[Rfam]
RNA: MIR403 microRNA precursor family
RNA sequence: UCCUAUCUCUGGUUUGUGCGUGGAUCUGAGGCCAUCACAACCGUCCACUACACGACCACCCAAUGGCUUUAGAUUCACGCACAAACUCGCGAUCUGUCU
Number, nucleotide and partner (000 for none) at each position: 001u000002c096003c000004u000005a093006u092007c091008u000009c000010u000011g087012g086013u085014u084015u083016g082017u081018g080019c079020g078021u077022g076023g075024a074025u073026c072027u000028g070029a069030g068031g000032c066033c065034a000035u000036c000037a000038c000039a000040a000041c000042c000043g056044u000045c054046c000047a000048c000049u000050a000051c000052a000053c000054g045055a000056c043057c000058a000059c000060c000061c000062a000063a000064u000065g033066g032067c000068u030069u029070u028071a000072g026073a025074u024075u023076c022077a021078c020079g019080c018081a017082c016083a015084a014085a013086c012087u011088c000089g000090c000091g007092a006093u005094c000095u000096g002097u000098c000099u000